[Rfam]
RNA sequence: GCGGAGACAAACGUUUCCGUUCACUCCUCACACCACAACCCGCCCGACUUCGCUCGGGCGGUU
Numbered sequence: 001g002c003g004g005a006g007a008c009a010a011a012c013g014u015u016u017c018c019g020u021u022c023a024c025u026c027c028u029c030a031c032a033c034c035a036c037a038a039c040c041c042g043c044c045c046g047a048c049u050u051c052g053c054u055c056g057g058g059c060g061g062u063u
Base pairs, nucleotide, nucleotide: 001020002019003018004017005016006015007014008013041060042059043058044057045056046055047054
The record is a 63-nucleotide RNA from Oscillatoria sp. FACHB-1406, which matches "Cyanobacterial functional RNA 1" in Rfam. NCBI's taxonomy places the organism under Bacteria, Bacillati, Cyanobacteriota, Oscillatoriales, Oscillatoria. A search with the family's covariance model found it, with a score of 61 bits. The family's consensus secondary structure is taken from published work. By type it is a small RNA.